[Rfam]
RNA: ylbH leader
RNA sequence: AUAAAAAUAGGGCUGUCCGGCUAUUGCAUGCAGACAUCGCCAUUCGGCAUAUAUCCACAAACGCAUAAGCGGACAGCCCGUCUUUUUGUUUCCGAUUUGGAGAAACAAAAAGCAAAGGGAGAGGAGAAACCGGAGGAAGGCUUAUGGGGAUGUAAGCCUUCUCCGUCU
Numbered sequence: 001a002u003a004a005a006a007a008u009a010g011g012g013c014u015g016u017c018c019g020g021c022u023a024u025u026g027c028a029u030g031c032a033g034a035c036a037u038c039g040c041c042a043u044u045c046g047g048c049a050u051a052u053a054u055c056c057a058c059a060a061a062c063g064c065a066u067a068a069g070c071g072g073a074c075a076g077c078c079c080g081u082c083u084u085u086u087u088g089u090u091u092c093c094g095a096u097u098u099g100g101a102g103a104a105a106c107a108a109a110a111a112g113c114a115a116a117g118g119g120a121g122a123g124g125a126g127a128a129a130c131c132g133g134a135g136g137a138a139g140g141c142u143u144a145u146g147g148g149g150a151u152g153u154a155a156g157c158c159u160u161c162u163c164c165g166u167c168u
Stems, first nucleotide, its partner, number of pairs: 011078009081119005087107006131165004136161009